[Rfam]
RNA sequence: GCGAAGGAAUGUUCGGCUAAAACCGCCGCUUUGCGCGGCAACGCCGAACCACCUCGCAUGGCGAG
Numbered sequence: 001g002c003g004a005a006g007g008a009a010u011g012u013u014c015g016g017c018u019a020a021a022a023c024c025g026c027c028g029c030u031u032u033g034c035g036c037g038g039c040a041a042c043g044c045c046g047a048a049c050c051a052c053c054u055c056g057c058a059u060g061g062c063g064a065g
Stems, first nucleotide, its partner, number of pairs: 011049007025039005053065005
Shown here is a 65-nucleotide sequence from Virgibacillus oceani, a member of the family "Bacillaceae-1 RNA". The base pairs follow the family's consensus structure, which is taken from published work. Taxonomically the source falls in Virgibacillus (Bacteria, Bacillota, Caryophanales, Bacillaceae).